[Rfam]
RNA sequence: GGUGGAGGCUUCCAAAGGGAUCGCAUUGAUCUAAUUGAUCAGAUAUGUCAAACAUCAUCCGCAUAGACAUAUGGUGGGUUAUGUUUUCGUCUGUGUAGUCGGAUCAUGCGAUCCCUUCGGACGUUUCCAUC
Numbered sequence: 001g002g003u004g005g006a007g008g009c010u011u012c013c014a015a016a017g018g019g020a021u022c023g024c025a026u027u028g029a030u031c032u033a034a035u036u037g038a039u040c041a042g043a044u045a046u047g048u049c050a051a052a053c054a055u056c057a058u059c060c061g062c063a064u065a066g067a068c069a070u071a072u073g074g075u076g077g078g079u080u081a082u083g084u085u086u087u088c089g090u091c092u093g094u095g096u097a098g099u100c101g102g103a104u105c106a107u108g109c110g111a112u113c114c115c116u117u118c119g120g121a122c123g124u125u126u127c128c129a130u131c
Base pairs, nucleotide, nucleotide: 002130003129004128005127006126008124009123011121012120013119015117016116017115018114019113020112021111023109024108025107026106028105029104030103031102032101
RNA: mir-393 microRNA precursor family
Organism: Malus domestica